[Rfam]
RNA: U12 minor spliceosomal RNA
Organism: Bos grunniens
RNA sequence: AUGUUUUAAACUUCUAAGUAAGGAAAAUUAUGAUUGGGGGUGACACUGAAUCCUCACAGCUAAUGUGAGAUGAAUUUUUGUGUGGGUAAAGCUGUCCCUAAGGUGACCUGCCUACUUUGCAGGAUGCCUGGGAGCUGUGAUGUGCCUA
Number, nucleotide and partner (000 for none) at each position: 001a000002u000003g000004u023005u022006u021007u020008a019009a000010a000011c000012u000013u000014c000015u000016a000017a000018g000019u008020a007021a006022g005023g004024a000025a000026a000027a000028u000029u000030a000031u000032g052033a051034u050035u049036g000037g000038g047039g046040g000041u000042g000043a000044c000045a000046c039047u038048g000049a035050a034051u033052c032053c069054u068055c067056a066057c065058a000059g000060c000061u000062a000063a000064u000065g057066u056067g055068a054069g053070a000071u000072g000073a000074a000075u000076u000077u000078u000079u000080g000081u000082g000083u148084g147085g146086g145087u144088a000089a143090a000091g141092c000093u139094g138095u137096c000097c000098c132099u131100a000101a129102g128103g127104u126105g125106a000107c123108c122109u121110g120111c119112c000113u000114a000115c000116u000117u000118u000119g111120c110121a109122g108123g107124a000125u105126g104127c103128c102129u101130g000131g099132g098133a000134g000135c000136u000137g095138u094139g093140a000141u091142g000143u089144g087145c086146c085147u084148a083